[Rfam]
RNA sequence: UGAACGCUGAAGCGUUUGCAGCGGAAAUCCUUUAUGCGGCGCAACGCAGUGGAGCCGCAAAAAGAUUGCAGUGAAAAGCGGGAACCAGC
Numbered sequence: 001u002g003a004a005c006g007c008u009g010a011a012g013c014g015u016u017u018g019c020a021g022c023g024g025a026a027a028u029c030c031u032u033u034a035u036g037c038g039g040c041g042c043a044a045c046g047c048a049g050u051g052g053a054g055c056c057g058c059a060a061a062a063a064g065a066u067u068g069c070a071g072u073g074a075a076a077a078g079c080g081g082g083a084a085c086c087a088g089c
Base pairs, nucleotide, nucleotide: 013080014079016077017076021072022071026067027066028065029064032062033061035059036058037057038056039055
The family of this 89-nucleotide RNA from Flavobacterium caeni is "Flavo-1 RNA".
The family has 201 seed sequences and 7,497 matches in Rfam 15.1.
The base pairs follow the family's consensus structure, which is taken from published work.